About this RNA: Rfam assigns this 96-nucleotide sequence from Podarcis muralis to the family "Vault RNA". From the family's description: This family of RNAs are found as part of the enigmatic vault ribonucleoprotein complex. By type it is a non-coding RNA gene. It scores 64 bits against the family's covariance model. Taxonomically the source falls in Podarcis (Eukaryota, Sauropsida, Bifurcata, Lacertidae).

[Rfam]
RNA sequence: GGGCCAGCUUAGCCUAGCGGUUACUUCGACUCUACAUUGCAGACUCUAAUUGCUUAACGGCAGUUUGAUACCCUGCAGGCGCUGUCUGGUCUUUUA
Numbered sequence: 001g002g003g004c005c006a007g008c009u010u011a012g013c014c015u016a017g018c019g020g021u022u023a024c025u026u027c028g029a030c031u032c033u034a035c036a037u038u039g040c041a042g043a044c045u046c047u048a049a050u051u052g053c054u055u056a057a058c059g060g061c062a063g064u065u066u067g068a069u070a071c072c073c074u075g076c077a078g079g080c081g082c083u084g085u086c087u088g089g090u091c092u093u094u095u096a
Stems, first nucleotide, its partner, number of pairs: 002091006012080004017076004026068004